[Rfam]
RNA: Actinobacteria sRNA Ms_IGR-5
RNA sequence: ACACGAGAAGGGAGGUGGUCCGGAUCUUGCUUGCUUAUCGGACUCGUGAGGUGGCUGUCCGCUAGCCGCCGUCUGUGAUGGGCCGCCCGUUCGGAGUGGAAUCCGAACGACGGCACGAUCGCCCGUCCGCCGUACGGCGGCGAGCGAGAACCGGACAGUCACCCGACCCCCGGGCCGCCGACCGUUGUCCAGUCGGCCCGCGUGCUGCUUCCCUCGUUCGUGGAGGGAGAGCGCCGCGGAGCAGCCCGGGGGUUGUCCGUU
Numbered sequence: 001a002c003a004c005g006a007g008a009a010g011g012g013a014g015g016u017g018g019u020c021c022g023g024a025u026c027u028u029g030c031u032u033g034c035u036u037a038u039c040g041g042a043c044u045c046g047u048g049a050g051g052u053g054g055c056u057g058u059c060c061g062c063u064a065g066c067c068g069c070c071g072u073c074u075g076u077g078a079u080g081g082g083c084c085g086c087c088c089g090u091u092c093g094g095a096g097u098g099g100a101a102u103c104c105g106a107a108c109g110a111c112g113g114c115a116c117g118a119u120c121g122c123c124c125g126u127c128c129g130c131c132g133u134a135c136g137g138c139g140g141c142g143a144g145c146g147a148g149a150a151c152c153g154g155a156c157a158g159u160c161a162c163c164c165g166a167c168c169c170c171c172g173g174g175c176c177g178c179c180g181a182c183c184g185u186u187g188u189c190c191a192g193u194c195g196g197c198c199c200g201c202g203u204g205c206u207g208c209u210u211c212c213c214u215c216g217u218u219c220g221u222g223g224a225g226g227g228a229g230a231g232c233g234c235c236g237c238g239g240a241g242c243a244g245c246c247c248g249g250g251g252g253u254u255g256u257c258c259g260u261u
Stems, first nucleotide, its partner, number of pairs: 014059006060146004065141002068138004073132001164255012177197006